[Rfam]
RNA sequence: UAUAUAUCGAUGAUCAACACCCCUGCUGAUUAUUAUCGAUAGUGAUAGUAAUCAAUUAACUGGAUAUAUAUCGAUUACUAUCACUAUUGAUAAUAAUCAGCAGGGGUGUUAAUCAUCGAU
Numbered sequence: 001u002a003u004a005u006a007u008c009g010a011u012g013a014u015c016a017a018c019a020c021c022c023c024u025g026c027u028g029a030u031u032a033u034u035a036u037c038g039a040u041a042g043u044g045a046u047a048g049u050a051a052u053c054a055a056u057u058a059a060c061u062g063g064a065u066a067u068a069u070a071u072c073g074a075u076u077a078c079u080a081u082c083a084c085u086a087u088u089g090a091u092a093a094u095a096a097u098c099a100g101c102a103g104g105g106g107u108g109u110u111a112a113u114c115a116u117c118g119a120u
Stems, first nucleotide, its partner, number of pairs: 016110007024102014039088001042084012

Rfam assigns this 120-nucleotide RNA sequence from Gigaspora margarita to the family "mir-36 microRNA precursor family". For this family Rfam cites "Dynamic expression of small non-coding RNAs, including novel microRNAs and piRNAs/21U-RNAs, during Caenorhabditis elegans development" (Kato et al., Genome Biol, 2009). Clan: mir-36 clan. Gene Ontology terms of the family: miRNA-mediated post-transcriptional gene silencing and RISC complex.